Shown here is a 112-nucleotide sequence from Treponema vincentii, a member of the family "TD-1 RNA". On this family, see Weinberg et al., Nucleic Acids Res 2007: "Identification of 22 candidate structured RNAs in bacteria using the CMfinder comparative genomics pipeline".

[Rfam]
RNA sequence: AUUUAACGCCGAGUUUGCCGUUCGGCAAACAUCGCUGAUUAUAUGUGCGCUUUUCGCGCACGAAUGCAGCAGUUUCCAAAGUUCAAACUUUGUUCAACUGUUGCAUUAUACG
Dot-bracket structure: ..........(((((((((....))))))).))...........((((((.....))))))..(((((((((((..((((((....))))))...)))))))))))......

A search with the family's covariance model found it, with a score of 72 bits.
The family is grouped with related families in Rfam's "TD (Treponema denticola) motifs".
The family's consensus secondary structure is taken from published work.
The organism belongs to Treponema vincentii, within Bacteria.